Background
A member of the RNA family "S15-Methanomicrobia ribosomal protein leader", 82 nucleotides long. The base pairs follow the family's consensus structure, which is taken from published work. It is one of the family's seed sequences. Clan: Ribosomal Protein S15 Leader clan. The literature on the family includes a 2020 paper in BMC Microbiol by Eckert and Weinberg, "Discovery of 20 novel ribosomal leader candidates in bacteria and archaea".
[Rfam]
RNA sequence: AGCACUUUUAAAAUUUAAGUGCUGGCAGAAGUAAGUCCGACGUGCACUAUUGCGUGCACUGCCCAACUGGGCUUGGGAUUAC
Numbered sequence: 001a002g003c004a005c006u007u008u009u010a011a012a013a014u015u016u017a018a019g020u021g022c023u024g025g026c027a028g029a030a031g032u033a034a035g036u037c038c039g040a041c042g043u044g045c046a047c048u049a050u051u052g053c054g055u056g057c058a059c060u061g062c063c064c065a066a067c068u069g070g071g072c073u074u075g076g077g078a079u080u081a082c
Stems, first nucleotide, its partner, number of pairs: 001023006031082004037077002042059005061072004